Overview:
A member of the RNA family "Purine riboswitch aptamer" from Lederbergia galactosidilytica, 102 nucleotides long.
RNA sequence: CUUAUUCUAUUCAUACUACCUUGUAUAAGUUCAGGAAUAAGGCUUGAACGUCUCUACCAGGCUGCCGUAAAUGGCCUAUCUACAAGGGGCAAUAAGGAAAGA
Numbered sequence: 001c002u003u004a005u006u007c008u009a010u011u012c013a014u015a016c017u018a019c020c021u022u023g024u025a026u027a028a029g030u031u032c033a034g035g036a037a038u039a040a041g042g043c044u045u046g047a048a049c050g051u052c053u054c055u056a057c058c059a060g061g062c063u064g065c066c067g068u069a070a071a072u073g074g075c076c077u078a079u080c081u082a083c084a085a086g087g088g089g090c091a092a093u094a095a096g097g098a099a100a101g102a
Stems, first nucleotide, its partner, number of pairs: 019087007029049007059077006
A search with the family's covariance model found it, with a score of 76 bits. The source organism's lineage runs through Bacteria, Bacillota, Bacilli, Caryophanales and Lederbergia. Rfam links the family to the GO term purine nucleobase biosynthetic process.